[Rfam]
RNA: mir-3492 microRNA precursor family
RNA sequence: AGCUUUUCGAAUCCGUGCUGGGAUUUCGUCCGAUACCAACCCAUUAGGGCUGACCACACUUCUAAGAUAAAUGAAGUU
Dot-bracket structure: .(((((....(((...(..(((.(.(.(((.....................))).).)))))...)))....))))).
Numbered sequence: 001a002g003c004u005u006u007u008c009g010a011a012u013c014c015g016u017g018c019u020g021g022g023a024u025u026u027c028g029u030c031c032g033a034u035a036c037c038a039a040c041c042c043a044u045u046a047g048g049g050c051u052g053a054c055c056a057c058a059c060u061u062c063u064a065a066g067a068u069a070a071a072u073g074a075a076g077u078u
Stems, first nucleotide, its partner, number of pairs: 002077005011068003017062001020061003024058001026056001028054003